[Rfam]
RNA sequence: GCCGUCAACAGACGGCAAAUAUUAGCCUUGAUAUGUCUGGGUGGACGCUUCUUGCAUGACCGUUGACUGCGUUAGACGGUUUCAUACCCAGUGGCAUUACGCGGUAUAUCACGCAAACCGGAUUGCGCCAAGGUUUACCAAAGCAAUGUCCGUAUACCGUACAAGGUGUUUUUAGCAAUUUUAUUUUUA
Numbered sequence: 001g002c003c004g005u006c007a008a009c010a011g012a013c014g015g016c017a018a019a020u021a022u023u024a025g026c027c028u029u030g031a032u033a034u035g036u037c038u039g040g041g042u043g044g045a046c047g048c049u050u051c052u053u054g055c056a057u058g059a060c061c062g063u064u065g066a067c068u069g070c071g072u073u074a075g076a077c078g079g080u081u082u083c084a085u086a087c088c089c090a091g092u093g094g095c096a097u098u099a100c101g102c103g104g105u106a107u108a109u110c111a112c113g114c115a116a117a118c119c120g121g122a123u124u125g126c127g128c129c130a131a132g133g134u135u136u137a138c139c140a141a142a143g144c145a146a147u148g149u150c151c152g153u154a155u156a157c158c159g160u161a162c163a164a165g166g167u168g169u170u171u172u173u174a175g176c177a178a179u180u181u182u183a184u185u186u187u188u189a
Stems, first nucleotide, its partner, number of pairs: 001016006024169001025167006032161001033097005038090005047055002058081006101160005107127001
About this RNA
The family of this 189-nucleotide RNA sequence is "RT-2 RNA". It is one of the family's seed sequences. By type it is a small RNA.